[Rfam]
RNA sequence: UACCUCUUUAAAAUAGUCCUGUGAGGCUGACAAGAGGGUUACACCUAUUCUGCACUUGUAUUUCUUGCAGAUAGGGACGUCAACCUCUUUGUCAUACACAAAGAGGUUUUUAAUU
Numbered sequence: 001u002a003c004c005u006c007u008u009u010a011a012a013a014u015a016g017u018c019c020u021g022u023g024a025g026g027c028u029g030a031c032a033a034g035a036g037g038g039u040u041a042c043a044c045c046u047a048u049u050c051u052g053c054a055c056u057u058g059u060a061u062u063u064c065u066u067g068c069a070g071a072u073a074g075g076g077a078c079g080u081c082a083a084c085c086u087c088u089u090u091g092u093c094a095u096a097c098a099c100a101a102a103g104a105g106g107u108u109u110u111u112a113a114u115u
Stems, first nucleotide, its partner, number of pairs: 003037006014029005044076003049071006079111001082108011
Dot-bracket structure: ..((((((.....(((((......)))))..))))))......(((..((((((...........))))))..)))..(..(((((((((((.....)))))))))))..)....
Background: Shown here is a 115-nucleotide RNA sequence from Halalkalibacter nanhaiisediminis, a member of the family "PyrR binding site". Its family is annotated with pyrimidine nucleobase biosynthetic process and pyrimidine nucleobase transport in the Gene Ontology. Lineage of the source: Bacteria > Bacilli > Caryophanales > Bacillaceae > Halalkalibacter. Pairs were carried over by alignment from the consensus structure, which is taken from published work. A reference for the family is Bonner et al. (2001), "Molecular recognition of pyr mRNA by the Bacillus subtilis attenuation regulatory protein PyrR", Nucleic Acids Res. Rfam's curators write: This family represents the PyrR binding site and terminator structure. This RNA structure is found upstream of a variety of genes involved in pyrimidine biosynthesis and transport.